[Rfam]
RNA sequence: GCGGGCGUAGGCGAUGAGGCUCGCCGUCAACCGCCGCUGCGCUGAUGGCCUCUACCAGAAU
Numbered sequence: 001g002c003g004g005g006c007g008u009a010g011g012c013g014a015u016g017a018g019g020c021u022c023g024c025c026g027u028c029a030a031c032c033g034c035c036g037c038u039g040c041g042c043u044g045a046u047g048g049c050c051u052c053u054a055c056c057a058g059a060a061u
Base pairs, nucleotide, nucleotide: 010025011024012023013022016052017051018050019049020048021047033042034041

Fluoride riboswitch aptamer (crcB RNA motif): a 61-nucleotide RNA from Plantactinospora sp. KBS50. Taxonomically the source falls in Plantactinospora (Bacteria, Bacillati, Actinomycetota, Micromonosporales).